[Rfam]
RNA sequence: CGGUGAUGUCUCCUAACCGUUAUCAACGGAGGCACUCGGCCAUGCUGUGGGUUAGGUCAAACCUUAGACGCGAGUCGUCAGGAGUGUGGUGUGAGGCGGGGUUGAAUGCCCU
Numbered sequence: 001c002g003g004u005g006a007u008g009u010c011u012c013c014u015a016a017c018c019g020u021u022a023u024c025a026a027c028g029g030a031g032g033c034a035c036u037c038g039g040c041c042a043u044g045c046u047g048u049g050g051g052u053u054a055g056g057u058c059a060a061a062c063c064u065u066a067g068a069c070g071c072g073a074g075u076c077g078u079c080a081g082g083a084g085u086g087u088g089g090u091g092u093g094a095g096g097c098g099g100g101g102u103u104g105a106a107u108g109c110c111c112u
Base pairs, nucleotide, nucleotide: 001019002018003017004016007034008033009032010031011030012029013028035095036094037093038092039090040089041088042087043086044085045084046083049064050063051062052061053060067079068078069077070076098112099111100110101109102108
RNA: epsC RNA